[Rfam]
RNA sequence: CUUAAUAAGGGCAAACUUAUCGAAAGGUAAGGACGCAAAGCCAUGGGUCUAAGGAGAGUUUUCUAAGAUAGCCAGGCUGCUAGGU
Numbered sequence: 001c002u003u004a005a006u007a008a009g010g011g012c013a014a015a016c017u018u019a020u021c022g023a024a025a026g027g028u029a030a031g032g033a034c035g036c037a038a039a040g041c042c043a044u045g046g047g048u049c050u051a052a053g054g055a056g057a058g059u060u061u062u063c064u065a066a067g068a069u070a071g072c073c074a075g076g077c078u079g080c081u082a083g084g085u
Stems, first nucleotide, its partner, number of pairs: 003082002011036002016031006034071001039078004044074003047069003
This 85-nucleotide RNA from Fonticella tunisiensis belongs to the Rfam family "c-di-GMP-I-GGC riboswitch aptamer". The source organism's lineage runs through Bacteria, Bacillota, Clostridia, Clostridiaceae and Fonticella. A reference for the family is Weinberg et al. (2017), "Bioinformatic analysis of riboswitch structures uncovers variant classes with altered ligand specificity", Proc Natl Acad Sci U S A. A search with the family's covariance model found it, with a score of 70 bits. The base pairs follow the family's consensus structure, which is taken from published work. Its Rfam clan is "c-di-GMP_I riboswitch clan".